[Rfam]
RNA: Rhodo-rpoB RNA
RNA sequence: GGCUCGGGAGCAGGCCGGUGGGACGGUUUGCAUGAAUAGGGCCCAAACCCCGUUUCGCAAAAGGGUGCGACAGCUGACGCCCAACAGUUGUGCC
Numbered sequence: 001g002g003c004u005c006g007g008g009a010g011c012a013g014g015c016c017g018g019u020g021g022g023a024c025g026g027u028u029u030g031c032a033u034g035a036a037u038a039g040g041g042c043c044c045a046a047a048c049c050c051c052g053u054u055u056c057g058c059a060a061a062a063g064g065g066u067g068c069g070a071c072a073g074c075u076g077a078c079g080c081c082c083a084a085c086a087g088u089u090g091u092g093c094c
Stems, first nucleotide, its partner, number of pairs: 001043005010031008067093003072089005
Dot-bracket structure: (((((....((((((((......)))))))).......))))).......................(((..(((((........))))).))).